RNA: Small nucleolar RNA SNORD100
Organism: Mesocricetus auratus
RNA sequence: GCUGCACAUGAUGACACCUGGCUCCCUCUACUGAACAGCUAUGAGGAAAAUGCCAUGUCACCCUUCUGACGCAGC
Numbered sequence: 001g002c003u004g005c006a007c008a009u010g011a012u013g014a015c016a017c018c019u020g021g022c023u024c025c026c027u028c029u030a031c032u033g034a035a036c037a038g039c040u041a042u043g044a045g046g047a048a049a050a051u052g053c054c055a056u057g058u059c060a061c062c063c064u065u066c067u068g069a070c071g072c073a074g075c
Stems, first nucleotide, its partner, number of pairs: 001075005